mir-2774 microRNA precursor family: a 67-nucleotide sequence from Bombyx mori.
[Rfam]
RNA sequence: ACAACAUUUGGACCGUCGGUCUACCGAACAAUAUUACCCGCUCGGUGGAAGAUCUUCCUCUCGUUGU
Number, nucleotide and partner (000 for none) at each position: 001a000002c000003a000004a064005c063006a000007u000008u000009u000010g058011g057012a056013c000014c000015g053016u052017c051018g000019g000020u049021c048022u047023a046024c045025c044026g043027a042028a000029c040030a000031a000032u000033a000034u000035u000036a000037c000038c000039c000040g029041c000042u027043c026044g025045g024046u023047g022048g021049a020050a000051g017052a016053u015054c000055u000056u012057c011058c010059u000060c000061u000062c000063g005064u004065u000066g000067u000

Source information: The match comes from Rfam's covariance-model search (78 bits).